[Rfam]
RNA: MIR6274 microRNA precursor family
RNA sequence: GGAUAGCACUUUUUGCUAUCCCCGGCUAAUAACGUAAUGACAUGUAGGAUAACUUUUUCACAUGUCAUUGUGUUAUUGGUCGGGGAUAGCAAAAUAGUGCUAUCC
Numbered sequence: 001g002g003a004u005a006g007c008a009c010u011u012u013u014u015g016c017u018a019u020c021c022c023c024g025g026c027u028a029a030u031a032a033c034g035u036a037a038u039g040a041c042a043u044g045u046a047g048g049a050u051a052a053c054u055u056u057u058u059c060a061c062a063u064g065u066c067a068u069u070g071u072g073u074u075a076u077u078g079g080u081c082g083g084g085g086a087u088a089g090c091a092a093a094a095u096a097g098u099g100c101u102a103u104c105c
Stems, first nucleotide, its partner, number of pairs: 002104004011094009021084025047058003